[Rfam]
RNA sequence: CCCGCGGACACGGGGUGCGCCCGCCGGCGCUGAGAUCACACCCGUGGAACCUGAUCUAGCUCGUACUAGCGAAGGGAUGUCCUCAUGACACCAU
Numbered sequence: 001c002c003c004g005c006g007g008a009c010a011c012g013g014g015g016u017g018c019g020c021c022c023g024c025c026g027g028c029g030c031u032g033a034g035a036u037c038a039c040a041c042c043c044g045u046g047g048a049a050c051c052u053g054a055u056c057u058a059g060c061u062c063g064u065a066c067u068a069g070c071g072a073a074g075g076g077a078u079g080u081c082c083u084c085a086u087g088a089c090a091c092c093a094u
Stems, first nucleotide, its partner, number of pairs: 006082005011044004016038001017030005050075003056069004
TPP riboswitch aptamer (THI element): a 94-nucleotide RNA from Actinomyces massiliensis. A search with the family's covariance model found it, with a score of 71 bits.